This 112-nucleotide RNA sequence from Streptomyces carminius belongs to the Rfam family "Glycine riboswitch aptamer". NCBI's taxonomy places the organism under Bacteria, Actinomycetes, Kitasatosporales, Streptomycetaceae, Streptomyces.
RNA sequence: CGAGCACGCGCGGGAGAGUUCCCGUGGACCCGCUGGUCACAGCGGUCCCACGGGGCGCCGAAGGAGCAAGUCCUCCCUUGAAUCUCUCAGGCCCCGAUACCGCGCGGGCGAG
Number, nucleotide and partner (000 for none) at each position: 001c000002g000003a000004g000005c000006a000007c106008g105009c104010g103011c102012g101013g100014g000015a000016g000017a000018g000019u000020u055021c054022c053023c052024g051025u050026g049027g048028a000029c000030c000031c000032g000033c000034u000035g000036g000037u000038c000039a000040c000041a000042g000043c000044g000045g000046u000047c000048c027049c026050a025051c024052g023053g022054g021055g020056c000057g092058c091059c090060g088061a087062a000063g000064g086065a085066g084067c000068a000069a000070g079071u000072c000073c000074u000075c000076c000077c000078u000079u070080g000081a000082a000083u000084c066085u065086c064087u061088c060089a000090g059091g058092c057093c000094c000095c000096g000097a000098u000099a000100c013101c012102g011103c010104g009105c008106g007107g000108g000109c000110g000111a000112g000